[Rfam]
Shown here is a 69-nucleotide RNA sequence from Betta splendens, a member of the family "mir-29 microRNA precursor family". About the family: This family represents the microRNA (miRNA) precursors mir-29. The family's consensus secondary structure was predicted with PFOLD. NCBI's taxonomy places the organism under Eukaryota, Osteoglossocephalai, Anabantiformes, Osphronemidae, Betta.
RNA sequence: AGGGAACUGGUUUCAGAUGGUGUCUUAGAGUAUCAAAUCCCAUCUAGCACCAUUUGAAAUCGGUGUUCU
Numbered sequence: 001a002g003g004g005a006a007c008u009g010g011u012u013u014c015a016g017a018u019g020g021u022g023u024c025u026u027a028g029a030g031u032a033u034c035a036a037a038u039c040c041c042a043u044c045u046a047g048c049a050c051c052a053u054u055u056g057a058a059a060u061c062g063g064u065g066u067u068c069u
Stems, first nucleotide, its partner, number of pairs: 001069004005064001007063009017053006026046004